[Rfam]
RNA sequence: AGCUUUGCUUGACAACGAGAGAGAGCACUUUUGUUUGCAUUCAUAAAAAGGACAUGGUUGUGUACAAGAGUGCUCUCUCUUGGUGUCAUUCAAUC
Dot-bracket structure: .........(((((.((..((.(.((((((((((.............................)))))))))).).))..)).))))).......
Numbered sequence: 001a002g003c004u005u006u007g008c009u010u011g012a013c014a015a016c017g018a019g020a021g022a023g024a025g026c027a028c029u030u031u032u033g034u035u036u037g038c039a040u041u042c043a044u045a046a047a048a049a050g051g052a053c054a055u056g057g058u059u060g061u062g063u064a065c066a067a068g069a070g071u072g073c074u075c076u077c078u079c080u081u082g083g084u085g086u087c088a089u090u091c092a093a094u095c
Stems, first nucleotide, its partner, number of pairs: 010088005016082002020078002023075001025073010